[Rfam]
RNA sequence: UUAUUGGCCAACGAUAGGGUCUGAAGGAAGCCAUAGGAAGUUAGAUGUACACAACUAACCGUAACCUGUUUCGGCAGCAUUGGUGUGUAAGCGUGGGAAAUAGCGCAAAGCCCAAUGCUUAGUCAGGCCAAUGCUGUGCUUGAGGGUGGGAUAUCUAACAGGGAGCUAGU
Numbered sequence: 001u002u003a004u005u006g007g008c009c010a011a012c013g014a015u016a017g018g019g020u021c022u023g024a025a026g027g028a029a030g031c032c033a034u035a036g037g038a039a040g041u042u043a044g045a046u047g048u049a050c051a052c053a054a055c056u057a058a059c060c061g062u063a064a065c066c067u068g069u070u071u072c073g074g075c076a077g078c079a080u081u082g083g084u085g086u087g088u089a090a091g092c093g094u095g096g097g098a099a100a101u102a103g104c105g106c107a108a109a110g111c112c113c114a115a116u117g118c119u120u121a122g123u124c125a126g127g128c129c130a131a132u133g134c135u136g137u138g139c140u141u142g143a144g145g146g147u148g149g150g151a152u153a154u155c156u157a158a159c160a161g162g163g164a165g166c167u168a169g170u
Stems, first nucleotide, its partner, number of pairs: 001017006030170002033167001042157006048150001050148003065145003074137003078133007085113001087111002091106004